Rfam assigns this 369-nucleotide RNA from Mycolicibacterium insubricum to the family "Bacterial RNase P class A".
[Rfam]
RNA sequence: CGAGUUGGCCGGGCGGCCGCGGAGCAAUCCGAGGAAAGUCCGGACUUCACAGAGCAGGGUGAUUGCUAACGGCAAUCCGAGGUGACUCGCGGGACAGUGCCACAGAAAACAAACCGCCGCCCGGGCUUCGGUCCGGGAGGUAAGGGUGAAACGGUGCGGUAAGAGCGCACCAGCAUCCCGGGCGACCGGGAUGGCUCGGUAAACCCCACCCGAAGCAAGGCCAAGAGGUCGCUUGCGACUGCGCAGGAAGGUUGCUCGCCCACGCCUGCGGGUAGGCCGCUUGAGGCACCCGGUGACGGUGUGCCCAGAUGGAUGGUCGCCGCCGUGGAAACACGGUCACAGAAUCCGGCUUACAGGCCAGCUCGUUCG
Dot-bracket structure: ((((((((((((((((((.((((....))))....[[[.[[[[[((((...[[[[.((((((((((.....)))))(((((....)))).)((...(((((............(((((.(((((((....))))))).)))..)).......((((((.......)))))).(((((((((....)))))))).)..)))..)))))))))))))...((((........((..((.............(((.]]]])))...))..)).....))))......((((((((....))).))))).........))))))).......................]]]]]]]].).))))))))))....

About the family: Ribonuclease P (RNase P) is a ubiquitous endoribonuclease, found in archaea, bacteria and eukarya as well as chloroplasts and mitochondria. It scores 290 bits against the family's covariance model.